[Rfam]
RNA: mir-3492 microRNA precursor family
RNA sequence: AGCCUUCUGUAUUCGUGCUGAGAUGUCGUCACACACCAGAACACAAGGGCAGAUAAGACUCCCAAGGUAAGUGAAGCA
Numbered sequence: 001a002g003c004c005u006u007c008u009g010u011a012u013u014c015g016u017g018c019u020g021a022g023a024u025g026u027c028g029u030c031a032c033a034c035a036c037c038a039g040a041a042c043a044c045a046a047g048g049g050c051a052g053a054u055a056a057g058a059c060u061c062c063c064a065a066g067g068u069a070a071g072u073g074a075a076g077c078a
Stems, first nucleotide, its partner, number of pairs: 002077002005074002008071001010069004016064002020061003024058001026056001028054003